[Rfam]
Overview
The family of this 56-nucleotide RNA sequence from Mycetocola zhujimingii is "msiK RNA". The match comes from Rfam's covariance-model search (52 bits). Rfam classes the family as a cis-regulatory element. The base pairs follow the family's consensus structure, which is taken from published work. The family has 120 seed sequences and 1,374 matches in Rfam 15.1.

RNA sequence: AGCAUGAAUCCUCACUCGGAUCGUCCGGCACGUACCUGCCGGUGAAGGAGCAGUAC
Numbered sequence: 001a002g003c004a005u006g007a008a009u010c011c012u013c014a015c016u017c018g019g020a021u022c023g024u025c026c027g028g029c030a031c032g033u034a035c036c037u038g039c040c041g042g043u044g045a046a047g048g049a050g051c052a053g054u055a056c
Stems, first nucleotide, its partner, number of pairs: 009048002012045003025042006